[Rfam]
RNA sequence: GCGGUCGUGGCGAAACGGCAGACGCGCUAGCUUCAGGCGCUAGUGGGAGAAAUCCUGUGGUGGUUCAAAUCCACUCGGCCGCA
Dot-bracket structure: (((((((..(((..........))).(((((.......)))))...............(((((.......)))))))))))).
RNA: tRNA
Organism: Megamonas hypermegale